This 100-nucleotide RNA from Manihot esculenta belongs to the Rfam family "Small nucleolar RNA Z157/R69/R10". By type it is a C/D-box small nucleolar RNA. The base pairs follow the family's consensus structure, which was predicted with PFOLD. The source organism's lineage runs through Eukaryota, Streptophyta, Euphyllophyta, fabids and Manihot.
[Rfam]
RNA sequence: AAGAGUGCAAUGAUGAAGCAUUUUUUUGUGGACUAGAGUUUCUGAUCUGGGAAUCUCUCCUAGAAGUUGAAGACUAACCCUUGGCUGUCUGAGUACUCUU
Numbered sequence: 001a002a003g004a005g006u007g008c009a010a011u012g013a014u015g016a017a018g019c020a021u022u023u024u025u026u027u028g029u030g031g032a033c034u035a036g037a038g039u040u041u042c043u044g045a046u047c048u049g050g051g052a053a054u055c056u057c058u059c060c061u062a063g064a065a066g067u068u069g070a071a072g073a074c075u076a077a078c079c080c081u082u083g084g085c086u087g088u089c090u091g092a093g094u095a096c097u098c099u100u
Stems, first nucleotide, its partner, number of pairs: 001100008039072004046065001047063005